[Rfam]
RNA sequence: AAACCCUUGACUCACUCUGAAAUCUGCCAUCAUGCUCCGUGGUUUAUUUCUAUUUUUGUGCAAGGAAGAUCAAUCAAGGCCCAAUACUCACCGCGACGUACUGGCUGUUAAGCUCUUGUGGACGUAGCGGUCCAUCAUCAUGGCCACAU
Numbered sequence: 001a002a003a004c005c006c007u008u009g010a011c012u013c014a015c016u017c018u019g020a021a022a023u024c025u026g027c028c029a030u031c032a033u034g035c036u037c038c039g040u041g042g043u044u045u046a047u048u049u050c051u052a053u054u055u056u057u058g059u060g061c062a063a064g065g066a067a068g069a070u071c072a073a074u075c076a077a078g079g080c081c082c083a084a085u086a087c088u089c090a091c092c093g094c095g096a097c098g099u100a101c102u103g104g105c106u107g108u109u110a111a112g113c114u115c116u117u118g119u120g121g122a123c124g125u126a127g128c129g130g131u132c133c134a135u136c137a138u139c140a141u142g143g144c145c146a147c148a149u
Stems, first nucleotide, its partner, number of pairs: 007063003019050005026043003078145004091130004096125003101121002
Dot-bracket structure: ......(((.........(((((..(((............)))..)))))..........)))..............((((.........((((.(((..((.................)).))).))))...........))))....
RNA: Small nucleolar RNA snR80